[Rfam]
RNA sequence: UCGUCAGUGCGGUACAUCCUGACCUGCCCCGCAUGCGCGGGCAGCACGUGAUGAGCGCGUACGUGAUGACGUAGUGAUUACGUUACGCGGCCGGCGCCGGCGCGCGCAACAAAGCCGGUGCCGCGUCCAGACUCUGAC
Dot-bracket structure: .......................(((.(((((....)))))))).........................(.((((....)..))).)....(((((((((..............)))))))..)).............
Numbered sequence: 001u002c003g004u005c006a007g008u009g010c011g012g013u014a015c016a017u018c019c020u021g022a023c024c025u026g027c028c029c030c031g032c033a034u035g036c037g038c039g040g041g042c043a044g045c046a047c048g049u050g051a052u053g054a055g056c057g058c059g060u061a062c063g064u065g066a067u068g069a070c071g072u073a074g075u076g077a078u079u080a081c082g083u084u085a086c087g088c089g090g091c092c093g094g095c096g097c098c099g100g101c102g103c104g105c106g107c108a109a110c111a112a113a114g115c116c117g118g119u120g121c122c123g124c125g126u127c128c129a130g131a132c133u134c135u136g137a138c
Stems, first nucleotide, its partner, number of pairs: 024044003028041005070087001072085003075080001092125002094121007